[Rfam]
RNA sequence: AGUUUUGGUAGGCGCCUAGUGGUGGAACGGUUGAGCCGGAAUCGCGAUUGAGAUGUGAUGUUAGUGGGCCAUUGUGCAUCUUUUUUAUAUUUUGGGCAAUGCGAGCACGCUAGUGCCAGUAUGCGCGGUUUCUGUUCUUAACGUACUUAUAGAUCGCUACGUUAUUUCAUUUUUGAAAAUCUGAGCCCGGGGAGUGCGGAUCCAUACAUACAUGUAAUUUGUUGUUGCAGUAUUGCUAGAGUACAUUUUUCUCCGCGAUUGUCUGUCUUCUUUACACCAGUUCUGUUUUCCGUCUCAACCUCUUCAUUAUUAUGGAAAGCAUCUACCAUUACCACACCCACACACGAACGUUAAGGCUAAUCGUUAUUAGUUGAAUCUCCAUAGCCAAGCUCUUUUUUUUUUCAAUGUUUUCCGUCGCUUUCCAAGUGACAGAAAAAAAGGAGUUUGAAUUAGGCUUGCAAAAGGGGCAAUAUCAAUGAUACUGUCACCCUUAAUGUCUGAUUUAUCGUCAACUCUGUAAAGGAAACAAGAGAGAGAAAGGUUGGUGGAGAUUAAAUCUGUAGAAAGAGGAAGGUUUAUUCUAGUUAUUCCAUUUUUC
Numbered sequence: 001a002g003u004u005u006u007g008g009u010a011g012g013c014g015c016c017u018a019g020u021g022g023u024g025g026a027a028c029g030g031u032u033g034a035g036c037c038g039g040a041a042u043c044g045c046g047a048u049u050g051a052g053a054u055g056u057g058a059u060g061u062u063a064g065u066g067g068g069c070c071a072u073u074g075u076g077c078a079u080c081u082u083u084u085u086u087a088u089a090u091u092u093u094g095g096g097c098a099a100u101g102c103g104a105g106c107a108c109g110c111u112a113g114u115g116c117c118a119g120u121a122u123g124c125g126c127g128g129u130u131u132c133u134g135u136u137c138u139u140a141a142c143g144u145a146c147u148u149a150u151a152g153a154u155c156g157c158u159a160c161g162u163u164a165u166u167u168c169a170u171u172u173u174u175g176a177a178a179a180u181c182u183g184a185g186c187c188c189g190g191g192g193a194g195u196g197c198g199g200a201u202c203c204a205u206a207c208a209u210a211c212a213u214g215u216a217a218u219u220u221g222u223u224g225u226u227g228c229a230g231u232a233u234u235g236c237u238a239g240a241g242u243a244c245a246u247u248u249u250u251c252u253c254c255g256c257g258a259u260u261g262u263c264u265g266u267c268u269u270c271u272u273u274a275c276a277c278c279a280g281u282u283c284u285g286u287u288u289u290c291c292g293u294c295u296c297a298a299c300c301u302c303u304u305c306a307u308u309a310u311u312a313u314g315g316a317a318a319g320c321a322u323c324u325a326c327c328a329u330u331a332c333c334a335c336a337c338c339c340a341c342a343c344a345c346g347a348a349c350g351u352u353a354a355g356g357c358u359a360a361u362c363g364u365u366a367u368u369a370g371u372u373g374a375a376u377c378u379c380c381a382u383a384g385c386c387a388a389g390c391u392c393u394u395u396u397u398u399u400u401u402u403c404a405a406u407g408u409u410u411u412c413c414g415u416c417g418c419u420u421u422c423c424a425a426g427u428g429a430c431a432g433a434a435a436a437a438a439a440g441g442a443g444u445u446u447g448a449a450u451u452a453g454g455c456u457u458g459c460a461a462a463a464g465g466g467g468c469a470a471u472a473u474c475a476a477u478g479a480u481a482c483u484g485u486c487a488c489c490c491u492u493a494a495u496g497u498c499u500g501a502u503u504u505a506u507c508g509u510c511a512a513c514u515c516u517g518u519a520a521a522g523g524a525a526a527c528a529a530g531a532g533a534g535a536g537a538a539a540g541g542u543u544g545g546u547g548g549a550g551a552u553u554a555a556a557u558c559u560g561u562a563g564a565a566a567g568a569g570g571a572a573g574g575u576u577u578a579u580u581c582u583a584g585u586u587a588u589u590c591c592a593u594u595u596u597u598c
Stems, first nucleotide, its partner, number of pairs: 006328007067117003125205001127203002134197002137194002142189002146185003151182004356371006408436005414430001416428004440516006448503008466486004471481003567597005573591002

The record is a 598-nucleotide part of an RNA from Saccharomyces pastorianus, which matches "Saccharomyces telomerase" in Rfam. The family is grouped with related families in Rfam's "Telomerase clan". The family's RNA type in Rfam is non-coding RNA gene. The literature on the family includes a 2004 paper in Curr Biol by Dandjinou et al., "A phylogenetically based secondary structure for the yeast telomerase RNA".